[Rfam]
RNA sequence: GGUUUCUAUUGGUAUAAAUCCAAUUUAAGAUGAUAAAAAAUUUCCCAUUGGUAGCGAACGUUAUCCAUUAAGCGGGGAA
Number, nucleotide and partner (000 for none) at each position: 001g000002g000003u000004u000005u000006c000007u000008a000009u000010u022011g021012g020013u000014a000015u000016a000017a000018a000019u000020c012021c011022a010023a000024u000025u000026u000027a000028a000029g000030a000031u000032g000033a000034u000035a000036a000037a000038a000039a000040a000041u000042u000043u077044c076045c075046c074047a068048u067049u000050g065051g064052u063053a062054g061055c060056g000057a000058a000059c000060g055061u054062u053063a052064u051065c050066c000067a048068u047069u000070a000071a000072g000073c000074g046075g045076g044077g043078a000079a000
RNA: Plastid-rps12 3UTR RNA